[Rfam]
The record is a 101-nucleotide sequence from Ephemeroptericola cinctiostellae, which matches "TPP riboswitch aptamer (THI element)" in Rfam. On this family, see Rodionov et al., J Biol Chem 2002: "Comparative genomics of thiamin biosynthesis in procaryotes. New genes and regulatory mechanisms". It scores 62 bits against the family's covariance model.
RNA sequence: AAAUUAACCUGCGGGCGCCCAUUUUUUGUCUCGUUGGGCUGAGAUACACCGCUGAACCUGAACAGGGUCAUGCCUGCGUAGGAAAGGAUUGCAAUGACAUU
Numbered sequence: 001a002a003a004u005u006a007a008c009c010u011g012c013g014g015g016c017g018c019c020c021a022u023u024u025u026u027u028g029u030c031u032c033g034u035u036g037g038g039c040u041g042a043g044a045u046a047c048a049c050c051g052c053u054g055a056a057c058c059u060g061a062a063c064a065g066g067g068u069c070a071u072g073c074c075u076g077c078g079u080a081g082g083a084a085a086g087g088a089u090u091g092c093a094a095u096g097a098c099a100u101u
Stems, first nucleotide, its partner, number of pairs: 006089001008087003011052004017039005057082004063076004